Rfam assigns this 71-nucleotide RNA from Lates calcarifer to the family "mir-216 microRNA precursor family".
Pairs were carried over by alignment from the consensus structure, which was predicted with WAR.
The literature on the family includes a 2003 paper in Science by Lim et al., "Vertebrate microRNA genes".
The family has 57 seed sequences and 1,667 matches in Rfam 15.1.
The match comes from Rfam's covariance-model search (57 bits).
RNA sequence: AAUCAGUUUAAUCUCAGCUGGCAACUGUGAGUUCUGAACGUCUCACAGCUCCGACUGAGGUUCACCUGAAC
Numbered sequence: 001a002a003u004c005a006g007u008u009u010a011a012u013c014u015c016a017g018c019u020g021g022c023a024a025c026u027g028u029g030a031g032u033u034c035u036g037a038a039c040g041u042c043u044c045a046c047a048g049c050u051c052c053g054a055c056u057g058a059g060g061u062u063c064a065c066c067u068g069a070a071c
Stems, first nucleotide, its partner, number of pairs: 003069004010062008021052001026047006